[Rfam]
RNA: Burkholderia sRNA 11
Organism: Burkholderia singularis
RNA sequence: CCGAUUUCGCGAGGGAUCUGCCGAGCGAAACAUGGUGGCUGCAUAUGUUGCGAGCCAGAUAGGGCAGACUGCGCGAGUCCGUGCAGACCACGGCAAGUCGCAUUGCGUUGCCGCGACGGGUAGUGCAUACCGUCGGGCCCGCCGCCCGAAGGCGCCAGCGUGCGCAUGAAAAAAGGCCUUCAUCUGGCGAUGAAGGCCUUUUACU
Numbered sequence: 001c002c003g004a005u006u007u008c009g010c011g012a013g014g015g016a017u018c019u020g021c022c023g024a025g026c027g028a029a030a031c032a033u034g035g036u037g038g039c040u041g042c043a044u045a046u047g048u049u050g051c052g053a054g055c056c057a058g059a060u061a062g063g064g065c066a067g068a069c070u071g072c073g074c075g076a077g078u079c080c081g082u083g084c085a086g087a088c089c090a091c092g093g094c095a096a097g098u099c100g101c102a103u104u105g106c107g108u109u110g111c112c113g114c115g116a117c118g119g120g121u122a123g124u125g126c127a128u129a130c131c132g133u134c135g136g137g138c139c140c141g142c143c144g145c146c147c148g149a150a151g152g153c154g155c156c157a158g159c160g161u162g163c164g165c166a167u168g169a170a171a172a173a174a175g176g177c178c179u180u181c182a183u184c185u186g187g188c189g190a191u192g193a194a195g196g197c198c199u200u201u202u203a204c205u
Stems, first nucleotide, its partner, number of pairs: 002035001005030006013022002036057004040052004062147004071101003074097001079093005105142003110138003114135001120131001152165004171202014